[Rfam]
RNA: Plastid-ycf2 5UTR RNA
RNA sequence: GUGCAUCCAGCAAAAACUGAACCUACGAAUUUGACAAUUAUGAGUUGGAUGCUUUGACCAUUCAGCCAUGGAUGC
Numbered sequence: 001g002u003g004c005a006u007c008c009a010g011c012a013a014a015a016a017c018u019g020a021a022c023c024u025a026c027g028a029a030u031u032u033g034a035c036a037a038u039u040a041u042g043a044g045u046u047g048g049a050u051g052c053u054u055u056g057a058c059c060a061u062u063c064a065g066c067c068a069u070g071g072a073u074g075c
Stems, first nucleotide, its partner, number of pairs: 003075006010026001012024001040069003044066008